Notes: This 338-nucleotide RNA sequence from Megalops atlanticus belongs to the Rfam family "Vertebrate telomerase RNA". A search with the family's covariance model found it, with a score of 93 bits. The family is grouped with related families in Rfam's "Telomerase clan". The literature on the family includes a 2000 paper in Cell by Chen et al., "Secondary structure of vertebrate telomerase RNA". Telomerase is a ribonucleoprotein reverse transcriptase that synthesises telomeric DNA. Telomerase RNAs differ greatly in sequence and structure between vertebrates, ciliates and yeasts, but they share a 5' pseudoknot structure close to the template sequence. Vertebrate telomerase RNAs have a 3' H/ACA snoRNA-like domain. NCBI's taxonomy places the organism under Eukaryota, Eumetazoa, Elopocephalai, Elopomorpha, Megalops. Gene Ontology terms of the family: telomerase activity, telomerase catalytic core complex and telomere maintenance via telomerase. The family has 37 seed sequences and 523 matches in Rfam 15.1.
RNA sequence: UUCUUUGUGGAGUUAUUUUCUAACCCUAAUUUUGGUUUUUCGUUAUACCCUCCCCGUUGUUAUGGUGACUGUUUUCUCUCUAGCUUUCAGUGCCUCACGGGGAGUUUUGAGCGGUAAGAAGGGAAUGUCGAAAAAAGCCUAGAGCCUCACUCUGCAAAGCUCAAUCGCCCGGCAAAAAAUGCUAUGACCGUGGACAGCUUGGCUGCCGCGAAGAGUUCGUCUCUGCUGCUCUGGCAUUAUUUGGCGGGCGAAAAAAAUUGAGUAGAUCAAACUGAGCGGCGCUUGCGUUUGCAGUUCGUUUUACGUGGAUCUGCAAGAAAGCGUCUGUUCAAACAAAU
Dot-bracket structure: ....(((((((((.......................................(((((......(((.((((........[[.[[[[[)))))))..)))))...............................]]].]]....]]....)))))))))..((((((((((((.((...(((((((....(((((.((((...))))))))).((((.....)))).......)))))))...)).))))))......))))))...........(((((((((((....(((((.(((.........)))..)))))..))))))).))))........